[Rfam]
RNA: sok antitoxin (CssrC)
Organism: Serratia odorifera
RNA sequence: GGGUGCUUGAGACUAUCUGUCUCGAGCAUUUGCAGAAGGCGGAUAGAGAAAAGCCCCAAGUGAUCUUUCAAUCAACUUGAGGCCCUCUUAUGCUUCGCAACAUAAAGGUAGCCUCUUACAUGCCGAAAGGCAAGGAGAAGAAGGCUAUG
Number, nucleotide and partner (000 for none) at each position: 001g057002g056003g055004u000005g054006c053007u052008u051009g000010a000011g000012a000013c046014u045015a044016u043017c042018u041019g040020u039021c038022u037023c000024g000025a000026g033027c032028a000029u000030u000031u000032g027033c026034a000035g000036a000037a022038g021039g020040c019041g018042g017043a016044u015045a014046g013047a000048g000049a000050a000051a008052a007053g006054c005055c003056c002057c001058a078059a077060g076061u075062g073063a072064u071065c000066u000067u000068u000069c000070a000071a064072u063073c062074a000075a061076c060077u059078u058079g115080a114081g113082g112083c111084c000085c108086u107087c000088u105089u104090a103091u102092g101093c000094u000095u000096c000097g000098c000099a000100a000101c092102a091103u090104a089105a088106a000107g086108g085109u000110a000111g083112c082113c081114u080115c079116u000117u000118a000119c144120a000121u142122g000123c140124c000125g000126a000127a000128a000129g000130g000131c000132a000133a000134g000135g000136a000137g000138a000139a000140g123141a000142a121143g000144g119145c000146u000147a000148u000149g000